[Rfam]
RNA sequence: UUAUUGUUCCUCCUAUUGCCUUCAGCCCUGGCACUAGGAUUUUAGGUCAUCAUAAAUUAAAAUUUGAUUUUCUUCACUCAGAGAAUAUUUGGAUGAUGGGAUUAUCUGUUAUUCUCUAAAAAUUUGCGGAAUCAAACACUU
Numbered sequence: 001u002u003a004u005u006g007u008u009c010c011u012c013c014u015a016u017u018g019c020c021u022u023c024a025g026c027c028c029u030g031g032c033a034c035u036a037g038g039a040u041u042u043u044a045g046g047u048c049a050u051c052a053u054a055a056a057u058u059a060a061a062a063u064u065u066g067a068u069u070u071u072c073u074u075c076a077c078u079c080a081g082a083g084a085a086u087a088u089u090u091g092g093a094u095g096a097u098g099g100g101a102u103u104a105u106c107u108g109u110u111a112u113u114c115u116c117u118a119a120a121a122a123u124u125u126g127c128g129g130a131a132u133c134a135a136a137c138a139c140u141u
Base pairs, nucleotide, nucleotide: 001049003047004046005045011039012038013037014036015035017033018032019031020030066133067132068131069130070129071128078119080117081116082115083114084113085112086111087110091107092106093105094104095103

The record is a 141-nucleotide RNA sequence from Pipistrellus kuhlii, which matches "Small nucleolar RNA SNORA79" in Rfam.
A reference for the family is Schattner et al. (2006), "A computational screen for mammalian pseudouridylation guide H/ACA RNAs", RNA.
Rfam describes the family as follows. ACA65 (SNORA79) is a member of the H/ACA class of snoRNAs that guide the sites of modification of uridines to pseudouridines. This snoRNA was identified by computational screening and its expression in mouse experimentally verified by Northern blot and primer extension analysis.
The source organism's lineage runs through Eukaryota, Bilateria, Chordata, Tetrapoda and Pipistrellus.